Shown here is a 562-nucleotide part of an RNA from Bugula neritina, a member of the family "Eukaryotic large subunit ribosomal RNA". A search with the family's covariance model found it, with a score of 2694 bits. Pairs were carried over by alignment from the consensus structure, which is taken from published work.

[Rfam]
Nucleotides: 562
Stems, first nucleotide, its partner, number of pairs: 015033006034560004043540004049520002054078006063071002085516003089255002094249002096112003100109003119240003259276005279512004302505003307499001311322004329487006338472004343467007351457003355373005378427003387417006396408004434452007526535002542554004
Number, partner (000 for none) and nucleotide at each position: 001000g002000g003000u004000a005000g006000u007000a008000g009000c010000a011000a012000g013000u014000a015033u016032a017031c018030a019029a020028a021000u022000g023000a024000g025000a026000a027000c028020u029019u030018u031017g032016u033015a034560g035559a036558c037557c038000g039000a040000a041000g042000u043540g044539g045538a046537g047000a048000a049520g050519g051000g052000u053000u054078c055077c056076a057075u058074g059073u060000g061000a062000a063071c064070a065000g066000c067000a068000g069000u070064u071063g072000g073059a074058c075057a076056u077055g078054g079000g080000u081000c082000a083000g084000u085516c086515g087514g088000c089255c090254c091000u092000a093000a094249g095248a096112g097111a098110u099000c100109g101108g102107a103000g104000a105000a106000c107102u108101c109100c110098g111097u112096u113000c114000u115000g116000a117000a118000c119240g120239g121238g122000g123000a124000g125000g126000a127000g128000g129000c130000g131000u132000u133000c134000g135000u136000u137000g138000c139000g140000a141000g142000c143000c144000g145000u146000c147000u148000g149000a150000c151000g152000u153000g154000a155000g156000c157000g158000g159000c160000c161000g162000c163000c164000c165000c166000c167000g168000c169000g170000g171000a172000c173000a174000u175000g176000c177000a178000c179000g180000c181000g182000g183000a184000a185000a186000g187000g188000g189000c190000g191000g192000c193000a194000g195000a196000g197000c198000c199000g200000a201000c202000g203000c204000g205000c206000g207000g208000c209000c210000g211000c212000c213000g214000a215000a216000a217000c218000g219000g220000g221000c222000g223000a224000a225000c226000g227000a228000c229000c230000u231000u232000g233000c234000u235000a236000g237000c238121c239120c240119c241000g242000a243000a244000c245000c246000g247000a248095u249094c250000g251000a252000a253000a254090g255089g256000g257000a258000a259276u260275c261274g262273g263272g264000u265000u266000a267000a268000u269000a270000u271000u272263c273262c274261c275260g276259a277000a278000c279512c280511u281510g282509g283000u284000g285000g286000u287000g288000g289000a290000g291000a292000u293000u294000g295000g296000g297000c298000c299000c300000u301000c302505g303504g304503g305000c306000c307499c308000c309000a310000g311322u312321g313320c314319g315000g316000u317000a318000a319314c320313g321312c322311a323000a324000c325000c326000g327000a328000a329487c330486u331485c332484g333483g334482a335000g336000a337000c338472g339471c340470c341469a342000g343467c344466g345465u346464c347463g348462a349461u350000c351457c352456c353455g354000g355373g356372a357371a358370g359369a360000g361000u362000u363000c364000u365000c366000u367000u368000u369359u370358c371357u372356u373355u374000g375000u376000u377000a378427g379426g380425a381000g382000c383000g384000g385000a386000c387417u388416c389415c390414c391413u392412g393000g394000a395000a396408u397407u398406g399405g400000c401000u402000u403000g404000u405399c406398c407397a408396g409000a410000g411000a412392u413391a414390g415389g416388g417387a418000c419000g420000u421000u422000g423000c424000a425380u426379c427378c428000g429000u430000a431000a432000a433000g434452c435451g436450u437449c438448g439447c440446g441000c442000c443000u444000c445000a446440c447439g448438c449437g450436g451435c452434g453000u454000c455353c456352g457351g458000u459000g460000c461349a462348u463347c464346g465345g466344c467343g468000u469341u470340g471339g472338c473000c474000c475000u476000u477000g478000a479000a480000a481000a482334u483333c484332c485331g486330a487329g488000g489000g490000a491000g492000g493000c494000a495000g496000u497000g498000u499307g500000a501000u502000u503304u504303u505302c506000a507000c508000u509282c510281c511280a512279g513000g514087c515086c516085g517000u518000a519050c520049c521000c522000g523000a524000a525000u526535c527534c528000g529000c530000a531000g532000c533000a534527g535526g536000u537046c538045u539044c540043c541000a542554a543553g544552g545551u546000g547000a548000a549000c550000a551545g552544c553543c554542u555000c556000u557037g558036g559035u560034c561000g562000a
Taxonomically the source falls in Bugula (Eukaryota, Opisthokonta, Lophotrochozoa, Bryozoa).